The record is a 46-nucleotide RNA from Aeromicrobium marinum, which matches "L31-Actinobacteria ribosomal protein leader" in Rfam. The family's RNA type in Rfam is cis-regulatory leader. On this family, see Eckert and Weinberg, BMC Microbiol 2020: "Discovery of 20 novel ribosomal leader candidates in bacteria and archaea". The base pairs follow the family's consensus structure, which is taken from published work.
RNA sequence: UUGGCUCUGGUUCACGGUGCGCAGCCGCGCAGCCGACCCAGCGGCC
Numbered sequence: 001u002u003g004g005c006u007c008u009g010g011u012u013c014a015c016g017g018u019g020c021g022c023a024g025c026c027g028c029g030c031a032g033c034c035g036a037c038c039c040a041g042c043g044g045c046c
Stems, first nucleotide, its partner, number of pairs: 003046003007041004015035003018031005
Dot-bracket structure: ..(((.((((....((((((((....))))).)))..))))..)))